[Rfam]
RNA: Nuclear RNase P
RNA sequence: UCCGGGGGAAGCUCACCACCGAGGCCACCUACUGGGUGUGCGUCACUCCAUCGCCCCGCCUCGGGGAAGGUCUGAGGGAAGGGCCACCGGCGGCUCUAGCAGAGCCCCGCCCGCGAGGGGGCGGGUGAGCCACCAGCAAGGGGGGGCGCCGCGUAUCCUGGGCCGGCCUGGGCAGGAGAAGCCGUUGCGGCGGUAGGCGGAGGAGGGAUGGGGCGCCGAUCUCCCCCCUCCUCCCGCACGAAACCCCGGCGGAUGCUCGUGGCCCCGCGGUGCUUUGGGACAGACUCACGGCCGGCAAUCGUUGAGUUCAAUGGGUGAGGUGGGGCACCGCCCUACAACCCAAUUCAGACUACUCUCCCCCGGA
Numbered sequence: 001u002c003c004g005g006g007g008g009a010a011g012c013u014c015a016c017c018a019c020c021g022a023g024g025c026c027a028c029c030u031a032c033u034g035g036g037u038g039u040g041c042g043u044c045a046c047u048c049c050a051u052c053g054c055c056c057c058g059c060c061u062c063g064g065g066g067a068a069g070g071u072c073u074g075a076g077g078g079a080a081g082g083g084c085c086a087c088c089g090g091c092g093g094c095u096c097u098a099g100c101a102g103a104g105c106c107c108c109g110c111c112c113g114c115g116a117g118g119g120g121g122c123g124g125g126u127g128a129g130c131c132a133c134c135a136g137c138a139a140g141g142g143g144g145g146g147c148g149c150c151g152c153g154u155a156u157c158c159u160g161g162g163c164c165g166g167c168c169u170g171g172g173c174a175g176g177a178g179a180a181g182c183c184g185u186u187g188c189g190g191c192g193g194u195a196g197g198c199g200g201a202g203g204a205g206g207g208a209u210g211g212g213g214c215g216c217c218g219a220u221c222u223c224c225c226c227c228c229u230c231c232u233c234c235c236g237c238a239c240g241a242a243a244c245c246c247c248g249g250c251g252g253a254u255g256c257u258c259g260u261g262g263c264c265c266c267g268c269g270g271u272g273c274u275u276u277g278g279g280a281c282a283g284a285c286u287c288a289c290g291g292c293c294g295g296c297a298a299u300c301g302u303u304g305a306g307u308u309c310a311a312u313g314g315g316u317g318a319g320g321u322g323g324g325g326c327a328c329c330g331c332c333c334u335a336c337a338a339c340c341c342a343a344u345u346c347a348g349a350c351u352a353c354u355c356u357c358c359c360c361c362g363g364a
Stems, first nucleotide, its partner, number of pairs: 001364004007358003012319006020063005034048005072348005082293004092106005107124006125289005131283001145274009320336007